Description
A member of the RNA family "Small nucleolar RNA snoR14" from Brassica oleracea, 88 nucleotides long. The family's RNA type in Rfam is C/D-box small nucleolar RNA. The family has 7 seed sequences and 668 matches in Rfam 15.1. Gene Ontology terms of the family: RNA processing and nucleolus.
[Rfam]
RNA sequence: UCGAGGUGAACAUAGAAUGUCCACAAGUCUCUCAAUCCCGUGAGACAUAUUGUGAUGUUAUUGUGAUAACUCUUGAGAUGCUGAUCGA
Numbered sequence: 001u002c003g004a005g006g007u008g009a010a011c012a013u014a015g016a017a018u019g020u021c022c023a024c025a026a027g028u029c030u031c032u033c034a035a036u037c038c039c040g041u042g043a044g045a046c047a048u049a050u051u052g053u054g055a056u057g058u059u060a061u062u063g064u065g066a067u068a069a070c071u072c073u074u075g076a077g078a079u080g081c082u083g084a085u086c087g088a
Base pairs, nucleotide, nucleotide: 001088002087003086004085